RNA sequence: UGAGUAGGAAAGAUGAUCGCGGAUAUCGACAGGAUAUUCGAGGAAAGUCCGAGCUCCGCAGGGCAGAGUGCUGGAUAACGUCCAGCGAGGGUGACCUCAGGGAAAGUGCCACAGAAAUGUAGACCGCCCGGUAUAAAAACCGGGUAAGGAUGGAACGGUGCGGUAAGAGCGCACCAGCAGCCAGGUGACUGGCUGGCUAGGUAAACCCCACUUGGAGCAAGACCAAAUAGGGAAGGGAUGAAGCGGCCCGCUGAGCCUUCCGGGUUGUGUCGCUAGAACCGUCAGGCAACUGCCGGUCCAGAUAAAUGAUCAUCACCGCAUAGUUUUGCGGAACAGGACUCGGCUUAUUGAAUACUCAUAGC
Number, nucleotide and partner (000 for none) at each position: 001u358002g357003a356004g355005u354006a353007g000008g000009a000010a349011a348012g314013a313014u312015g311016a310017u309018c308019g000020c040021g039022g038023a037024u036025a035026u034027c033028g000029a000030c000031a000032g000033g027034a026035u025036a024037u023038u022039c021040g020041a000042g000043g000044a000045a346046a345047g344048u000049c343050c342051g341052a340053g339054c217055u216056c215057c214058g000059c000060a000061g249062g248063g247064c246065a000066g213067a212068g211069u210070g209071c085072u084073g083074g082075a081076u000077a000078a000079c000080g000081u075082c074083c073084a072085g071086c100087g098088a097089g096090g095091g000092u000093g000094a000095c090096c089097u088098c087099a000100g086101g208102g207103a000104a000105a000106g206107u205108g202109c201110c200111a000112c000113a000114g000115a000116a000117a000118u000119g000120u000121a000122g000123a000124c149125c148126g145127c144128c143129c142130g141131g140132u139133a000134u000135a000136a000137a000138a000139a132140c131141c130142g129143g128144g127145u126146a000147a000148g125149g124150a000151u000152g000153g000154a000155a000156c000157g175158g174159u173160g172161c171162g170163g000164u000165a000166a000167g000168a000169g000170c162171g161172c160173a159174c158175c157176a000177g197178c195179a194180g193181c192182c191183a190184g189185g000186u000187g000188a000189c184190u183191g182192g181193c180194u179195g178196g000197c177198u000199a000200g110201g109202u108203a000204a000205a107206c106207c102208c101209c070210a069211c068212u067213u066214g057215g056216a055217g054218c000219a000220a000221g271222a270223c269224c267225a000226a000227a000228u000229a000230g000231g261232g260233a259234a258235g257236g256237g000238a000239u000240g000241a000242a252243g251244c250245g000246g064247c063248c062249c061250g244251c243252u242253g000254a000255g000256c236257c235258u234259u233260c232261c231262g000263g000264g000265u000266u000267g224268u000269g223270u222271c221272g000273c000274u000275a000276g000277a000278a297279c296280c295281g294282u000283c292284a291285g290286g000287c000288a000289a000290c285291u284292g283293c000294c281295g280296g279297u278298c000299c000300a000301g000302a000303u000304a000305a000306a000307u000308g018309a017310u016311c015312a014313u013314c012315a000316c000317c000318g000319c000320a000321u000322a000323g000324u000325u000326u000327u000328g000329c000330g000331g000332a000333a000334c000335a000336g000337g000338a000339c053340u052341c051342g050343g049344c047345u046346u045347a000348u011349u010350g000351a000352a000353u006354a005355c004356u003357c002358a001359u000360a000361g000362c000
This 362-nucleotide sequence from Allolucifera butyrica belongs to the Rfam family "Bacterial RNase P class A". For this family Rfam cites "Identification and characterization of small RNAs in Yersinia pestis" (Beauregard et al., RNA Biol, 2013). Pairs were carried over by alignment from the consensus structure, which is taken from published work.